[Rfam]
RNA sequence: CUAAAGGCAGGCGAUGGGGCUCGCCACAACCGCCACCUCUGGCUAAUAGCCUCUACCCCGUG
Numbered sequence: 001c002u003a004a005a006g007g008c009a010g011g012c013g014a015u016g017g018g019g020c021u022c023g024c025c026a027c028a029a030c031c032g033c034c035a036c037c038u039c040u041g042g043c044u045a046a047u048a049g050c051c052u053c054u055a056c057c058c059c060g061u062g
Base pairs, nucleotide, nucleotide: 010025011024012023013022016053017052018051019050020049021048032043033042034041035040
A member of the RNA family "Fluoride riboswitch aptamer (crcB RNA motif)" from Mycobacterium botniense, 62 nucleotides long. Gene Ontology terms of the family: response to fluoride and positive regulation of gene expression. A search with the family's covariance model found it, with a score of 43 bits.